[Rfam]
RNA sequence: GGAGGUGCGUGUACGUCAGUGACGGCACGGCCGGGCAUUGAUCGCUCGCCCGUCUGGUUUGCAGAUCUGUUCGGCGUCGCGUGCUGUCACAGUCAGGGUCGAUCCAGCAACCAAUGGACUCCGCCGCUGUCGCGUCGCACGGUCGGUCAUCCGCUGGUUACUUGAACGUCCGCUCUUACCAAAUUUUGGGGGUCUCGGAUGGGGUUAAGUUUACGAUGCACCUCCAUAACGGCACUACAGAAUCGGUAGUUUGCCAUUUUUUGA
Dot-bracket structure: ((((((((..........(((((.......(((.(((..((((((....(......)...)).))))))).)))...........)))))...............................................................................................................................)))))))).....((((((((.......)))))..))).........

A member of the RNA family "Arthropod 7SK RNA" from Brassicogethes aeneus, 264 nucleotides long. A search with the family's covariance model found it, with a score of 96 bits. Clan: 7SK clan. It is annotated as a non-coding RNA gene. The source organism's lineage runs through Eukaryota, Opisthokonta, Metazoa, Neoptera and Brassicogethes.